Background
The record is a 75-nucleotide RNA from Dorcoceras hygrometricum, which matches "mir-166 microRNA precursor family" in Rfam. For this family Rfam cites "MicroRNAs in plants" (Reinhart et al., Genes Dev, 2002). The family has 31 seed sequences and 2,599 matches in Rfam 15.1. Rfam links the family to the GO terms RISC complex and miRNA-mediated post-transcriptional gene silencing. This family represents the plant microRNA (miRNA) precursor mir-166.
RNA sequence: GUUGAGGGGAAUGUUAUCUGGUGCGAAACCUUCCCCGGCCUGGAUGAUUUCGGACCAGGCUUCAUUCCCCUCAAC
Numbered sequence: 001g002u003u004g005a006g007g008g009g010a011a012u013g014u015u016a017u018c019u020g021g022u023g024c025g026a027a028a029c030c031u032u033c034c035c036c037g038g039c040c041u042g043g044a045u046g047a048u049u050u051c052g053g054a055c056c057a058g059g060c061u062u063c064a065u066u067c068c069c070c071u072c073a074a075c
Stems, first nucleotide, its partner, number of pairs: 001075013017059005024052005